[Rfam]
RNA sequence: UCACAAGUUCAAGGCCACAGCAGAAGCACUCACAAUGUGACCAUGUCAGCUUCAAACAAAUCUGUGAAUUCUGUU
Numbered sequence: 001u002c003a004c005a006a007g008u009u010c011a012a013g014g015c016c017a018c019a020g021c022a023g024a025a026g027c028a029c030u031c032a033c034a035a036u037g038u039g040a041c042c043a044u045g046u047c048a049g050c051u052u053c054a055a056a057c058a059a060a061u062c063u064g065u066g067a068a069u070u071c072u073g074u075u
Stems, first nucleotide, its partner, number of pairs: 013042002016039001019075007026038003047064003051060002
Rfam assigns this 75-nucleotide RNA sequence from Alligator sinensis to the family "Mammalian CPEB3 ribozyme". Its family is annotated with RNA nuclease activity in the Gene Ontology. The mammalian CPEB3 ribozyme is a self cleaving RNA located in the second intron of the CPEB3 gene which belongs to a family of genes regulating messenger RNA polyadenylation. The match comes from Rfam's covariance-model search (39 bits). The source organism's lineage runs through Eukaryota, Metazoa, Craniata, Teleostomi and Alligator.